[Rfam]
RNA sequence: CUCAAGGGAGUAGCUGGCGGUUAACCGCGAUAGUGUCGUCAUUACGAAUUAUUUCCGGCACUAUAUUAAACAGCGAGACUUGUUUUUUUAAAAAACAGGUCUCUUUUU
Numbered sequence: 001c002u003c004a005a006g007g008g009a010g011u012a013g014c015u016g017g018c019g020g021u022u023a024a025c026c027g028c029g030a031u032a033g034u035g036u037c038g039u040c041a042u043u044a045c046g047a048a049u050u051a052u053u054u055c056c057g058g059c060a061c062u063a064u065a066u067u068a069a070a071c072a073g074c075g076a077g078a079c080u081u082g083u084u085u086u087u088u089u090a091a092a093a094a095a096c097a098g099g100u101c102u103c104u105u106u107u108u
Base pairs, nucleotide, nucleotide: 007026008025011023012022013021014020030064031063032062033061034060035059036058037057038056041054075103076102077101078100079099080098081097082096083095084094085093086092
The family of this 108-nucleotide RNA sequence from Streptococcus infantis is "Streptococcus sRNA 10". The match comes from Rfam's covariance-model search (79 bits). The base pairs follow the family's consensus structure, which was predicted with RNAfold. By type it is a small RNA. On this family, see Tesorero et al., PLoS One 2013: "Novel regulatory small RNAs in Streptococcus pyogenes". The organism belongs to Streptococcus infantis, within Bacteria.